[Rfam]
RNA sequence: AACCAAUGAUGAGCUCUUUAUUUUCUGACACCUCGUAUGAAAACUGGCUACAGUUACUGAUUACAAGGCAUGAGCUGAGGUUU
Numbered sequence: 001a002a003c004c005a006a007u008g009a010u011g012a013g014c015u016c017u018u019u020a021u022u023u024u025c026u027g028a029c030a031c032c033u034c035g036u037a038u039g040a041a042a043a044c045u046g047g048c049u050a051c052a053g054u055u056a057c058u059g060a061u062u063a064c065a066a067g068g069c070a071u072g073a074g075c076u077g078a079g080g081u082u083u
Stems, first nucleotide, its partner, number of pairs: 001082004043054004
RNA: Small nucleolar RNA SNORD60
Organism: Salvator merianae